Rfam assigns this 90-nucleotide RNA sequence from [Emmonsia] crescens to the family "A. fumigatus snoRNA Afu_263". Clan: SNORD77 clan. It is annotated as a C/D-box small nucleolar RNA.
[Rfam]
RNA sequence: UUCAGUGAUGAUUCCAAUUUAUAAGCAUAGUUCAACUGAAGGCCUCCGGGUCCUGAACGACAACCUUUACAUCUUUCACCUUUUCUGAAC
Numbered sequence: 001u002u003c004a005g006u007g008a009u010g011a012u013u014c015c016a017a018u019u020u021a022u023a024a025g026c027a028u029a030g031u032u033c034a035a036c037u038g039a040a041g042g043c044c045u046c047c048g049g050g051u052c053c054u055g056a057a058c059g060a061c062a063a064c065c066u067u068u069a070c071a072u073c074u075u076u077c078a079c080c081u082u083u084u085c086u087g088a089a090c
Stems, first nucleotide, its partner, number of pairs: 006017001009016002030058005041052004
Dot-bracket structure: .....(..((....)))............(((((......((((....)))).)))))................................